[Rfam]
RNA sequence: CCCGCCACUGUACCUGCCCAAUUACAGCCGUGGCUUGUACAUUCCAGUGGUGAGCUAAGAGAACUCCCCAGUCAAGGAAACAGGGUUAUUCUCUCCGUGGGUAACUCUGUGCCGAAGACUGGGAACAAAA
Numbered sequence: 001c002c003c004g005c006c007a008c009u010g011u012a013c014c015u016g017c018c019c020a021a022u023u024a025c026a027g028c029c030g031u032g033g034c035u036u037g038u039a040c041a042u043u044c045c046a047g048u049g050g051u052g053a054g055c056u057a058a059g060a061g062a063a064c065u066c067c068c069c070a071g072u073c074a075a076g077g078a079a080a081c082a083g084g085g086u087u088a089u090u091c092u093c094u095c096c097g098u099g100g101g102u103a104a105c106u107c108u109g110u111g112c113c114g115a116a117g118a119c120u121g122g123g124a125a126c127a128a129a130a
Stems, first nucleotide, its partner, number of pairs: 005050006018037001020035001022032001066123003070120004076113002081109006089101003